[Rfam]
RNA sequence: CACCCAUCCCCGGGGAGCCGAGCGGCUGAGAGGUGGGCGUCGCGUCCCACGACCCGUUGAACCUGAACCCGUUAGCACGGGCGGAGGGAAGGGUCCGGCCAAGCCA
Dot-bracket structure: .....((((.((((..(((....)))......(((((........)))))..)))).....(((...((((......))))...)))...))))............
Shown here is a 106-nucleotide RNA sequence from Novosphingobium piscinae, a member of the family "TPP riboswitch aptamer (THI element)". The organism belongs to Novosphingobium, within Bacteria.